The record is a 186-nucleotide sequence from Pokkaliibacter plantistimulans, which matches "FMN riboswitch aptamer (RFN element)" in Rfam. Lineage of the source: Bacteria > Pseudomonadati > Gammaproteobacteria > Balneatrichaceae > Pokkaliibacter. The family's consensus secondary structure is taken from published work. Its family is annotated with FMN binding in the Gene Ontology.
RNA sequence: UCUUAUUCUCAGGGCGGGGUGUAAUUCCCCACCGGCGGUAUGUUGCCCCAUCUGCAAUAAGGCAGAUAGCAACGAGCCCGCGAGCGCUCAGUCUGCCUUACCUUUGUGGAGGUCGUCAGACGGAGGUCAGCAGAUCUGGUGAGAGGCCAGAGCCGACGGUAAUAGUCCGGAUGGAAGAGGAUAAGG
Numbered sequence: 001u002c003u004u005a006u007u008c009u010c011a012g013g014g015c016g017g018g019g020u021g022u023a024a025u026u027c028c029c030c031a032c033c034g035g036c037g038g039u040a041u042g043u044u045g046c047c048c049c050a051u052c053u054g055c056a057a058u059a060a061g062g063c064a065g066a067u068a069g070c071a072a073c074g075a076g077c078c079c080g081c082g083a084g085c086g087c088u089c090a091g092u093c094u095g096c097c098u099u100a101c102c103u104u105u106g107u108g109g110a111g112g113u114c115g116u117c118a119g120a121c122g123g124a125g126g127u128c129a130g131c132a133g134a135u136c137u138g139g140u141g142a143g144a145g146g147c148c149a150g151a152g153c154c155g156a157c158g159g160u161a162a163u164a165g166u167c168c169g170g171a172u173g174g175a176a177g178a179g180g181a182u183a184a185g186g
Stems, first nucleotide, its partner, number of pairs: 003184008017029003031166002033155002035081004084131002135151005157169003